[Rfam]
This 102-nucleotide sequence from Gordonia effusa belongs to the Rfam family "Glycine riboswitch aptamer". The source organism's lineage runs through Bacteria, Actinomycetota, Actinomycetes, Gordoniaceae and Gordonia effusa. The match comes from Rfam's covariance-model search (56 bits).

RNA sequence: CGCUGCGCAGCGGGAGAGCGCCGGACCGCAACUCGGAUCUGGCCGCCGAAGGAGCAACACCUCUCCGUCAAUCUCUCAGGCACCCCGGACCGUUGCGUUGAC
Numbered sequence: 001c002g003c004u005g006c007g008c009a010g011c012g013g014g015a016g017a018g019c020g021c022c023g024g025a026c027c028g029c030a031a032c033u034c035g036g037a038u039c040u041g042g043c044c045g046c047c048g049a050a051g052g053a054g055c056a057a058c059a060c061c062u063c064u065c066c067g068u069c070a071a072u073c074u075c076u077c078a079g080g081c082a083c084c085c086c087g088g089a090c091c092g093u094u095g096c097g098u099u100g101a102c
Stems, first nucleotide, its partner, number of pairs: 006097008020043006045081003048077002052075003059068002